[Rfam]
Rfam assigns this 449-nucleotide part of an RNA from Salarchaeum sp. JOR-1 to the family "Archaeal large subunit ribosomal RNA". Gene Ontology terms of the family: structural constituent of ribosome and ribosome. It scores 2877 bits against the family's covariance model. Taxonomically the source falls in Salarchaeum (Archaea, Methanobacteriati, Methanobacteriota, Halobacteria). The base pairs follow the family's consensus structure, which is taken from published work.
RNA sequence: CCAACCGAAACAUGUCGAAGCAUGACCUCUGCUGAGGUAGUUCGUGGGGUAGAGCAACCGAUUGGGGAGUCCAACUCCGAGAGGAGUUGGCCCCCCUGUCAAACUCCGAACCUACGAACGCCGCUGACGCAGGGAAUCCGGUGUGCGGGGUAAGCCUGUGCACCGUGAGGGAGACAACCCAGAGCUUGGUUAAGGUCCCAAAGUACGAACUAAGUGCGAUUGAAGGUUGUUCCAAGCCCUAGACAGCCGGGAGGUGAGCUUAGAAGCAGCUACCCUCUAAGAAAAGCGUAACAGCUUACCGGCCGAGGUUUGGAGCGCCCAAAAUGAUCGGGGCUCAAGUUCGUCACCGAGACCUAGCAGCACGAGUAACAUCGUGAUCUUGUAGGUUGGCACUCUGUUCGGGCGGAAGCACGGUCGAGAGAUCGUGUGGACCGAAUAGGGAAGAAAAU
Numbered sequence: 001c002c003a004a005c006c007g008a009a010a011c012a013u014g015u016c017g018a019a020g021c022a023u024g025a026c027c028u029c030u031g032c033u034g035a036g037g038u039a040g041u042u043c044g045u046g047g048g049g050u051a052g053a054g055c056a057a058c059c060g061a062u063u064g065g066g067g068a069g070u071c072c073a074a075c076u077c078c079g080a081g082a083g084g085a086g087u088u089g090g091c092c093c094c095c096c097u098g099u100c101a102a103a104c105u106c107c108g109a110a111c112c113u114a115c116g117a118a119c120g121c122c123g124c125u126g127a128c129g130c131a132g133g134g135a136a137u138c139c140g141g142u143g144u145g146c147g148g149g150g151u152a153a154g155c156c157u158g159u160g161c162a163c164c165g166u167g168a169g170g171g172a173g174a175c176a177a178c179c180c181a182g183a184g185c186u187u188g189g190u191u192a193a194g195g196u197c198c199c200a201a202a203g204u205a206c207g208a209a210c211u212a213a214g215u216g217c218g219a220u221u222g223a224a225g226g227u228u229g230u231u232c233c234a235a236g237c238c239c240u241a242g243a244c245a246g247c248c249g250g251g252a253g254g255u256g257a258g259c260u261u262a263g264a265a266g267c268a269g270c271u272a273c274c275c276u277c278u279a280a281g282a283a284a285a286g287c288g289u290a291a292c293a294g295c296u297u298a299c300c301g302g303c304c305g306a307g308g309u310u311u312g313g314a315g316c317g318c319c320c321a322a323a324a325u326g327a328u329c330g331g332g333g334c335u336c337a338a339g340u341u342c343g344u345c346a347c348c349g350a351g352a353c354c355u356a357g358c359a360g361c362a363c364g365a366g367u368a369a370c371a372u373c374g375u376g377a378u379c380u381u382g383u384a385g386g387u388u389g390g391c392a393c394u395c396u397g398u399u400c401g402g403g404c405g406g407a408a409g410c411a412c413g414g415u416c417g418a419g420a421g422a423u424c425g426u427g428u429g430g431a432c433c434g435a436a437u438a439g440g441g442a443a444g445a446a447a448a449u
Base pairs, nucleotide, nucleotide: 001390002389003388004387005386006385011024012023013022014021015020027134028133029132030131031130032129036122037121038120040119041118042117043116044115045114046113047112052107053105054104060100061099062098064096065095066094067093069091073088074087075086076085077084078083140164141163142162143161144160145159146158147157148156169180170179171178184358185357186356188354189353190352194348195347196346203345205344206343207342208341209340210339225319226318227317229316230315231314232313233312234311235310236309237308238307246303247302248301249300250299252276253275254274257271258270259269277281282297286295287294359380360379361376362375363374364373365372391444393441394440395439396438397437398436399435400434401433402432409428410427411426412425413424414423415422416421